mir-399 microRNA precursor family: a 105-nucleotide RNA sequence from Ipomoea nil.
RNA sequence: AUAUGAAUAGCAGGGCUUUCUCCCUCGGCAAAGAAGAUGUAGUAUAGCCAAGCCAAGCAGUAUUGGUUUUUCUUUGCCAAAGGAGAAUUGCCCUGCCAUUCACUC
Numbered sequence: 001a002u003a004u005g006a007a008u009a010g011c012a013g014g015g016c017u018u019u020c021u022c023c024c025u026c027g028g029c030a031a032a033g034a035a036g037a038u039g040u041a042g043u044a045u046a047g048c049c050a051a052g053c054c055a056a057g058c059a060g061u062a063u064u065g066g067u068u069u070u071u072c073u074u075u076g077c078c079a080a081a082g083g084a085g086a087a088u089u090g091c092c093c094u095g096c097c098a099u100u101c102a103c104u105c
Base pairs, nucleotide, nucleotide: 005101006100007099008098011095012094013093014092015091016090017087020085021084022083023082027078028077029076030075031074032073033072034071

A search with the family's covariance model found it, with a score of 65 bits. The literature on the family includes a 2004 paper in Mol Cell by Jones-Rhoades and Bartel, "Computational Identification of Plant MicroRNAs and Their Targets, Including a Stress-Induced miRNA". Gene Ontology terms of the family: RISC complex and miRNA-mediated post-transcriptional gene silencing. From the family's description: mir-399 was identified in both Arabidopsis thaliana and Oryza sativa computationally and was later experimentally verified. mir-399 is thought to target mRNAs coding for a phosphatase transporter. The mature sequence is excised from the 3' arm of the hairpin.